[Rfam]
A member of the RNA family "c-di-GMP-I riboswitch aptamer" from Desulfitobacterium metallireducens, 101 nucleotides long. Lineage of the source: Bacteria > Bacillota > Eubacteriales > Desulfitobacterium > Desulfitobacterium metallireducens. It scores 52 bits against the family's covariance model.

RNA sequence: AUUGUGUUGGGGUAAACUUCGUGAAAGCGAAGGACGCUAAAGCUAUGGGUCUACGGUUGAUUACAUGAGCAAACAUCAGCUAAGAUCGCCAAGCUACAAGU
Numbered sequence: 001a002u003u004g005u006g007u008u009g010g011g012g013u014a015a016a017c018u019u020c021g022u023g024a025a026a027g028c029g030a031a032g033g034a035c036g037c038u039a040a041a042g043c044u045a046u047g048g049g050u051c052u053a054c055g056g057u058u059g060a061u062u063a064c065a066u067g068a069g070c071a072a073a074c075a076u077c078a079g080c081u082a083a084g085a086u087c088g089c090c091a092a093g094c095u096a097c098a099a100g101u
Stems, first nucleotide, its partner, number of pairs: 012037002017032006041095004046091003049086003056080006